[Rfam]
RNA sequence: CCGUGCUAGAUGGGGAGGUGGCGGUGCCCUGUAACUCGCAAUCCGCCUUAGCGGGGUUGAAUUCCUAUCUGAGGCUUAUUCUGUGUGAGGCUUGGUCUUUCUGGACAGUGUUGACGAUUGGGUCCUACGCAACGAGUACUUCUGAACCGUGUCAGGUCCUGACGGAAGCAGCACUAAGGUUGGCUUCUCGUGUGCCGUAGGGUUGCCUGGUUUGAGCUGGAAGGGAAGUUACCGCUUGGACAGAUAAGUCAAAGAUAGGUGCACGG
Numbered sequence: 001c002c003g004u005g006c007u008a009g010a011u012g013g014g015g016a017g018g019u020g021g022c023g024g025u026g027c028c029c030u031g032u033a034a035c036u037c038g039c040a041a042u043c044c045g046c047c048u049u050a051g052c053g054g055g056g057u058u059g060a061a062u063u064c065c066u067a068u069c070u071g072a073g074g075c076u077u078a079u080u081c082u083g084u085g086u087g088a089g090g091c092u093u094g095g096u097c098u099u100u101c102u103g104g105a106c107a108g109u110g111u112u113g114a115c116g117a118u119u120g121g122g123u124c125c126u127a128c129g130c131a132a133c134g135a136g137u138a139c140u141u142c143u144g145a146a147c148c149g150u151g152u153c154a155g156g157u158c159c160u161g162a163c164g165g166a167a168g169c170a171g172c173a174c175u176a177a178g179g180u181u182g183g184c185u186u187c188u189c190g191u192g193u194g195c196c197g198u199a200g201g202g203u204u205g206c207c208u209g210g211u212u213u214g215a216g217c218u219g220g221a222a223g224g225g226a227a228g229u230u231a232c233c234g235c236u237u238g239g240a241c242a243g244a245u246a247a248g249u250c251a252a253a254g255a256u257a258g259g260u261g262c263a264c265g266g
Stems, first nucleotide, its partner, number of pairs: 001266006009058003012030004017025001019023001035055005064259007073250005080244005086238004093231002097228006106220001107218003116212008124201006130192002133190004139182001142179002149174004157166003
Shown here is a 266-nucleotide RNA from Shimazuella alba, a member of the family "Bacterial large signal recognition particle RNA". For this family Rfam cites "Prediction of signal recognition particle RNA genes" (Regalia et al., Nucleic Acids Res, 2002). The family is grouped with related families in Rfam's "SRP clan". It scores 193 bits against the family's covariance model. Rfam describes the family as follows. The signal recognition particle (SRP) is a universally conserved ribonucleoprotein involved in the co-translational targeting of proteins to membranes. The base pairs follow the family's consensus structure, which is taken from published work.